[Rfam]
Small nucleolar RNA snoR2/U65: a 151-nucleotide RNA sequence from Rhododendron simsii.
Rfam classes the family as an H/ACA-box small nucleolar RNA.
Its Rfam clan is "SNORA65 clan".

RNA sequence: GGUCUGAUGCCACGUCGACGGUAGCCACAGAGCAUUGACCGGCGAUGCUAUCUUUGGAUGAAAAUCAAUUUCUUGUUUCGCAUAUUUGAUAGGAACCUGUGGAUCGAUUUGUAUGUCAUUCGUCCACGAAGCCGAUUUUGCGAUUACAUUU
Numbered sequence: 001g002g003u004c005u006g007a008u009g010c011c012a013c014g015u016c017g018a019c020g021g022u023a024g025c026c027a028c029a030g031a032g033c034a035u036u037g038a039c040c041g042g043c044g045a046u047g048c049u050a051u052c053u054u055u056g057g058a059u060g061a062a063a064a065u066c067a068a069u070u071u072c073u074u075g076u077u078u079c080g081c082a083u084a085u086u087u088g089a090u091a092g093g094a095a096c097c098u099g100u101g102g103a104u105c106g107a108u109u110u111g112u113a114u115g116u117c118a119u120u121c122g123u124c125c126a127c128g129a130a131g132c133c134g135a136u137u138u139u140g141c142g143a144u145u146a147c148a149u150u151u
Stems, first nucleotide, its partner, number of pairs: 002059006009051001013047005020040003024033002078143005092133002098128002101125003105122002